Shown here is a 122-nucleotide RNA from Mesorhizobium sp. Root172, a member of the family "Alphaproteobacterial ar14". The pairing is the family consensus, mapped onto this sequence. Rfam classes the family as a small RNA. From the family's description: Smr14C2 was renamed NfeR1 (Nodule Formation Efficiency RNA) highly expressed in salt stress and during the symbiotic interaction on legume roots. The organism belongs to Mesorhizobium, within Bacteria.

RNA sequence: GAAUUUCGCUGGAAUCGACCUCCUCCCCGAGCCCAGCGAAGACGGUCGGCCCUUACCCUCCUCCCAAGGGUUGACCACCAAAACGGCGCCCGCCGCACCUCCUCCCGCGGCGGGCGUUGUUU
Numbered sequence: 001g002a003a004u005u006u007c008g009c010u011g012g013a014a015u016c017g018a019c020c021u022c023c024u025c026c027c028c029g030a031g032c033c034c035a036g037c038g039a040a041g042a043c044g045g046u047c048g049g050c051c052c053u054u055a056c057c058c059u060c061c062u063c064c065c066a067a068g069g070g071u072u073g074a075c076c077a078c079c080a081a082a083a084c085g086g087c088g089c090c091c092g093c094c095g096c097a098c099c100u101c102c103u104c105c106c107g108c109g110g111c112g113g114g115c116g117u118u119g120u121u122u
Base pairs, nucleotide, nucleotide: 007038008037009036011034012033015030016029044076045075046074047073048072049071050070051069052068053067086117087116088115089114090113091112092111093110094109095108096107